Shown here is a 90-nucleotide RNA from Streptomyces sp. NTH33, a member of the family "Streptomyces RNA 3202". Rfam's curators write: Identified by deep sequencing of transcriptome at the end of exponential growth phase. Appears smaller on northern blot than sequencing transcript. This indicates processing step. Rfam classes the family as a small RNA. A search with the family's covariance model found it, with a score of 68 bits. The source organism's lineage runs through Bacteria, Bacillati, Actinomycetota, Actinomycetes and Streptomyces.
RNA sequence: CCACGUCCCGACGCACUCCCCCCGGCGCCGGGACUCUCCCCGAGCCGGGCUUCGGCGCCUCACCCCCCGGGCGCCGGGCCCGGCUCCACU
Numbered sequence: 001c002c003a004c005g006u007c008c009c010g011a012c013g014c015a016c017u018c019c020c021c022c023c024g025g026c027g028c029c030g031g032g033a034c035u036c037u038c039c040c041c042g043a044g045c046c047g048g049g050c051u052u053c054g055g056c057g058c059c060u061c062a063c064c065c066c067c068c069g070g071g072c073g074c075c076g077g078g079c080c081c082g083g084c085u086c087c088a089c090u
Stems, first nucleotide, its partner, number of pairs: 005034006012027003042086010053076008